[Rfam]
RNA sequence: AGCGUGACCAGGAUAGUCCAUCGUAUAACUCCGUUAAUAAGGGACGGAGGUAUCUACCAGGAACCGCAAAUUCCUGACUACGAAGGAUGUGGCUUGACCA
Numbered sequence: 001a002g003c004g005u006g007a008c009c010a011g012g013a014u015a016g017u018c019c020a021u022c023g024u025a026u027a028a029c030u031c032c033g034u035u036a037a038u039a040a041g042g043g044a045c046g047g048a049g050g051u052a053u054c055u056a057c058c059a060g061g062a063a064c065c066g067c068a069a070a071u072u073c074c075u076g077a078c079u080a081c082g083a084a085g086g087a088u089g090u091g092g093c094u095u096g097a098c099c100a
Base pairs, nucleotide, nucleotide: 018086019085021083022082023081024080025079029049030048031047032046033045034044035043058076059075060074061073062072063071